[Rfam]
About this RNA
The record is a 96-nucleotide RNA sequence from Cricetulus griseus, which matches "Small nucleolar RNA U83B" in Rfam. Gene Ontology terms of the family: RNA processing and nucleolus. Rfam classes the family as a C/D-box small nucleolar RNA. The literature on the family includes a 2000 paper in Nucleic Acids Res by Jady and Kiss, "Characterisation of the U83 and U84 small nucleolar RNAs: two novel 2'-O-ribose methylation guide RNAs that lack complementarities to ribosomal RNAs". U83B belongs to the C/D family of snoRNAs. U83B like U83A has no documented RNA target and they share the same host gene with the C/D box snoRNA U43 (RPL3). N.B. U83A/B/C have no sequence similarity with the U83 snoRNA that was cloned by Jady and Kiss (2000). The pairing is the family consensus, mapped onto this sequence. NCBI's taxonomy places the organism under Eukaryota, Metazoa, Eumetazoa, Cricetinae, Cricetulus.

RNA sequence: GCUGUUCUGUGAUGAAUCUCUGGAAUAAGCGCUGGGCACAGCGCCCGAGUAAACCUGAGGAACCAUUCCCUCUGUUGCCUUCCUUCUGAGAACAGC
Numbered sequence: 001g002c003u004g005u006u007c008u009g010u011g012a013u014g015a016a017u018c019u020c021u022g023g024a025a026u027a028a029g030c031g032c033u034g035g036g037c038a039c040a041g042c043g044c045c046c047g048a049g050u051a052a053a054c055c056u057g058a059g060g061a062a063c064c065a066u067u068c069c070c071u072c073u074g075u076u077g078c079c080u081u082c083c084u085u086c087u088g089a090g091a092a093c094a095g096c
Stems, first nucleotide, its partner, number of pairs: 001096005
Dot-bracket structure: (((((......................................................................................)))))